[Rfam]
RNA sequence: AAACAGCCCCCUAUGUUUUGGAUUUUUGGCAAUUUUGGCCCCUAAGAGCACUUUUGACUUAGUCUUCGUUGAAGUGGCACCCACAAUGGUCGAUACGUGGCACCUCACUUAAGGGAUGUGGGUGUCACGUCAACGAAGACCAAGUCAAAAGUGGCAUUGGGGGCCAAAACUGCUAAAGAUCCAAUACAUAGGGGGCUGUUU
Numbered sequence: 001a002a003a004c005a006g007c008c009c010c011c012u013a014u015g016u017u018u019u020g021g022a023u024u025u026u027u028g029g030c031a032a033u034u035u036u037g038g039c040c041c042c043u044a045a046g047a048g049c050a051c052u053u054u055u056g057a058c059u060u061a062g063u064c065u066u067c068g069u070u071g072a073a074g075u076g077g078c079a080c081c082c083a084c085a086a087u088g089g090u091c092g093a094u095a096c097g098u099g100g101c102a103c104c105u106c107a108c109u110u111a112a113g114g115g116a117u118g119u120g121g122g123u124g125u126c127a128c129g130u131c132a133a134c135g136a137a138g139a140c141c142a143a144g145u146c147a148a149a150a151g152u153g154g155c156a157u158u159g160g161g162g163g164c165c166a167a168a169a170c171u172g173c174u175a176a177a178g179a180u181c182c183a184a185u186a187c188a189u190a191g192g193g194g195g196c197u198g199u200u201u
Stems, first nucleotide, its partner, number of pairs: 001201002004198005012190005018184014033169013072130001075127008

The record is a 201-nucleotide RNA from Medicago truncatula, which matches "MIR2619 microRNA precursor family" in Rfam. The family's consensus secondary structure was predicted with RNAalifold. Taxonomically the source falls in Medicago (Eukaryota, Streptophyta, Pentapetalae, Papilionoideae). Its family is annotated with RISC complex and miRNA-mediated post-transcriptional gene silencing in the Gene Ontology.